Rfam assigns this 84-nucleotide RNA sequence from Senna tora to the family "MIR5225 microRNA precursor family".
Lineage of the source: Eukaryota > Streptophyta > Spermatophyta > rosids > Senna.
It scores 80 bits against the family's covariance model.
[Rfam]
RNA sequence: UAUAGGGACUUCUGUCGUGGGAGAGAUGACGCCUACUGUACUUACAGUAGUUGUCAUCUCUCUUCGACUGAAGCCCCUCCUCUU
Numbered sequence: 001u002a003u004a005g006g007g008a009c010u011u012c013u014g015u016c017g018u019g020g021g022a023g024a025g026a027u028g029a030c031g032c033c034u035a036c037u038g039u040a041c042u043u044a045c046a047g048u049a050g051u052u053g054u055c056a057u058c059u060c061u062c063u064u065c066g067a068c069u070g071a072a073g074c075c076c077c078u079c080c081u082c083u084u
Base pairs, nucleotide, nucleotide: 005076006075007074009073010072011071012070014068015067016066017065019064020063021062023060024059025058026057027056028055029054030053031052